[Rfam]
This 112-nucleotide sequence from Ipomoea nil belongs to the Rfam family "mir-395 microRNA precursor family". About the family: mir-395 was identified in both Arabidopsis thaliana and Oryza sativa computationally and was later experimentally verified. mir-395 is thought to target mRNAs coding for ATP sulphurylases. The mature sequence is excised from the 3' arm of the hairpin. The base pairs follow the family's consensus structure, which was predicted with PFOLD.
RNA sequence: GUUUUCCAUUGAGUUCCCUUGAGCACUUCAAUAUGCAUAUGCCUUACUGGAAUUUACGAGAAAGGGCAUAUUGGUAGCCUACUGAAGUGUUUGGGGGAACUCUGUGGACUAC
Numbered sequence: 001g002u003u004u005u006c007c008a009u010u011g012a013g014u015u016c017c018c019u020u021g022a023g024c025a026c027u028u029c030a031a032u033a034u035g036c037a038u039a040u041g042c043c044u045u046a047c048u049g050g051a052a053u054u055u056a057c058g059a060g061a062a063a064g065g066g067c068a069u070a071u072u073g074g075u076a077g078c079c080u081a082c083u084g085a086a087g088u089g090u091u092u093g094g095g096g097g098a099a100c101u102c103u104g105u106g107g108a109c110u111a112c
Stems, first nucleotide, its partner, number of pairs: 005108005011102010022092002024089007032081002035078001
On this family, see Jones-Rhoades and Bartel, Mol Cell 2004: "Computational Identification of Plant MicroRNAs and Their Targets, Including a Stress-Induced miRNA".